[Rfam]
RNA sequence: UGGCUGAUGAUGAUAAAUUCUUUAUCUUAGCGGAUUUCAUUGAGAUUGAAAAUUAAAAUUUCAAUCAAGGAUUUGAUUGUUACACACACUGAAGCCA
Numbered sequence: 001u002g003g004c005u006g007a008u009g010a011u012g013a014u015a016a017a018u019u020c021u022u023u024a025u026c027u028u029a030g031c032g033g034a035u036u037u038c039a040u041u042g043a044g045a046u047u048g049a050a051a052a053u054u055a056a057a058a059u060u061u062c063a064a065u066c067a068a069g070g071a072u073u074u075g076a077u078u079g080u081u082a083c084a085c086a087c088a089c090u091g092a093a094g095c096c097a
Stems, first nucleotide, its partner, number of pairs: 001097005
Shown here is a 97-nucleotide sequence, a member of the family "Small nucleolar RNA R11/Z151". On this family, see Barneche et al., J Mol Biol 2001: "Identification of 66 box C/D snoRNAs in Arabidopsis thaliana: extensive gene duplications generated multiple isoforms predicting new ribosomal RNA 2'-O-methylation sites". Its family is annotated with RNA processing and nucleolus in the Gene Ontology.